[Rfam]
Shown here is a 63-nucleotide RNA from Alphacoronavirus chicagoense, a member of the family "Coronavirus 3' UTR pseudoknot". For this family Rfam cites "A phylogenetically conserved hairpin-type 3' untranslated region pseudoknot functions in coronavirus RNA replication" (Williams et al., J Virol, 1999). The organism belongs to Alphacoronavirus chicagoense, within Viruses. Rfam's curators write: Coronaviruses are plus-strand RNA viruses with ~30kb genomes. The family is grouped with related families in Rfam's "Coronavirus 3' UTR".

RNA sequence: CUAGUCUUAUACACAAUGGUAAGCCAGUGGUAGUAAAGGUAUAAGAAAUUUGCUACUAUGUUA
Numbered sequence: 001c002u003a004g005u006c007u008u009a010u011a012c013a014c015a016a017u018g019g020u021a022a023g024c025c026a027g028u029g030g031u032a033g034u035a036a037a038g039g040u041a042u043a044a045g046a047a048a049u050u051u052g053c054u055a056c057u058a059u060g061u062u063a
Stems, first nucleotide, its partner, number of pairs: 007044006028058002031055007